Background:
This 67-nucleotide RNA sequence from Solibacillus silvestris belongs to the Rfam family "Bacillaceae-1 RNA".
RNA sequence: AUUGAAAGAACACAAGCUAAAACCGUCACGUCCUGUGACAACGCUUGUGUGACCAACAUCGUGUUGG
Numbered sequence: 001a002u003u004g005a006a007a008g009a010a011c012a013c014a015a016g017c018u019a020a021a022a023c024c025g026u027c028a029c030g031u032c033c034u035g036u037g038a039c040a041a042c043g044c045u046u047g048u049g050u051g052a053c054c055a056a057c058a059u060c061g062u063g064u065u066g067g
Stems, first nucleotide, its partner, number of pairs: 011049007025039005053067005